[Rfam]
The record is a 133-nucleotide RNA from Oxylabes madagascariensis, which matches "Small nucleolar RNA SNORA13" in Rfam. About the family: ACA13 is a member of the H/ACA class of snoRNA that guide the sites of modification of uridines to pseudouridines.
RNA sequence: GGCCUUUGUGUUGCCCAUUCAUUCGUGUCCAGAACGGAUGUGGUGUCAAAAAAGGCAAACAGGAAUUCUUGCUCAGAGUGGUUUAGGGAGUUGGUUAUAUACCCUCCUCAUUUCUGUUUUUGCGAGGACAAAA
Numbered sequence: 001g002g003c004c005u006u007u008g009u010g011u012u013g014c015c016c017a018u019u020c021a022u023u024c025g026u027g028u029c030c031a032g033a034a035c036g037g038a039u040g041u042g043g044u045g046u047c048a049a050a051a052a053a054g055g056c057a058a059a060c061a062g063g064a065a066u067u068c069u070u071g072c073u074c075a076g077a078g079u080g081g082u083u084u085a086g087g088g089a090g091u092u093g094g095u096u097a098u099a100u101a102c103c104c105u106c107c108u109c110a111u112u113u114c115u116g117u118u119u120u121u122g123c124g125a126g127g128a129c130a131a132a133a
Base pairs, nucleotide, nucleotide: 002056003055004054005053006052007051009048010047012045013044014043015042016040017039018038019037020036022034023033068126069125070124071123072122075119076118077117082116085113086112087111088109089108093104094103
The family is grouped with related families in Rfam's "SNORA13 clan". Taxonomically the source falls in Oxylabes (Eukaryota, Deuterostomia, Chordata, Archelosauria).